[Rfam]
RNA sequence: GAGUUAGUAACUUAAUAGGUAAAGGAUCUUCUUGUCGAGAAGGGAGAUGCCGGAUCGAGGCCGGCCUAAUUCG
Numbered sequence: 001g002a003g004u005u006a007g008u009a010a011c012u013u014a015a016u017a018g019g020u021a022a023a024g025g026a027u028c029u030u031c032u033u034g035u036c037g038a039g040a041a042g043g044g045a046g047a048u049g050c051c052g053g054a055u056c057g058a059g060g061c062c063g064g065c066c067u068a069a070u071u072c073g
Base pairs, nucleotide, nucleotide: 001072002071003070004069005068006067007066011024012023013022027043028042029041030040031039049065050064051063052062053061